This 106-nucleotide RNA sequence from Isachenkonia alkalipeptolytica belongs to the Rfam family "Glycine riboswitch aptamer".
RNA sequence: AUGAAGAGUGUGGGAGAGACUCGGGAAACAACCCGGGCGCCGAAGGAAUAAACUAAAAACCCCAUUUUUUAGUGAAUCUCUCAGGCAAAAGGACCGUACUUGGACA
Numbered sequence: 001a002u003g004a005a006g007a008g009u010g011u012g013g014g015a016g017a018g019a020c021u022c023g024g025g026a027a028a029c030a031a032c033c034c035g036g037g038c039g040c041c042g043a044a045g046g047a048a049u050a051a052a053c054u055a056a057a058a059a060c061c062c063c064a065u066u067u068u069u070u071a072g073u074g075a076a077u078c079u080c081u082c083a084g085g086c087a088a089a090a091g092g093a094c095c096g097u098a099c100u101u102g103g104a105c106a
Stems, first nucleotide, its partner, number of pairs: 006101008020037004039086003042082002046080002052073008